[Rfam]
RNA sequence: UUCCAUAGAUCAAACCUAGAAAUCAAAAAGCUGAACUGAGGCUUUGACUCUGUGUUAGAAUAAUAUCUAUUCUUUUCCUCUGCAUUCAAAUGGGUAUUUCACAUUUGAAAUAUAUUCAGAAAAUCAGCACAUCA
Numbered sequence: 001u002u003c004c005a006u007a008g009a010u011c012a013a014a015c016c017u018a019g020a021a022a023u024c025a026a027a028a029a030g031c032u033g034a035a036c037u038g039a040g041g042c043u044u045u046g047a048c049u050c051u052g053u054g055u056u057a058g059a060a061u062a063a064u065a066u067c068u069a070u071u072c073u074u075u076u077c078c079u080c081u082g083c084a085u086u087c088a089a090a091u092g093g094g095u096a097u098u099u100c101a102c103a104u105u106u107g108a109a110a111u112a113u114a115u116u117c118a119g120a121a122a123a124u125c126a127g128c129a130c131a132u133c134a
Stems, first nucleotide, its partner, number of pairs: 004054005014045001016041002020037001057073006079120004084111003087107006
The family of this 134-nucleotide sequence from Dipodomys ordii is "Small nucleolar RNA SNORA22". The family's consensus secondary structure was predicted with RNAfold. The source organism's lineage runs through Eukaryota, Opisthokonta, Chordata, Amniota and Dipodomys. ACA22 is a member of the H/ACA class of snoRNA that guide the sites of modification of uridines to pseudouridines.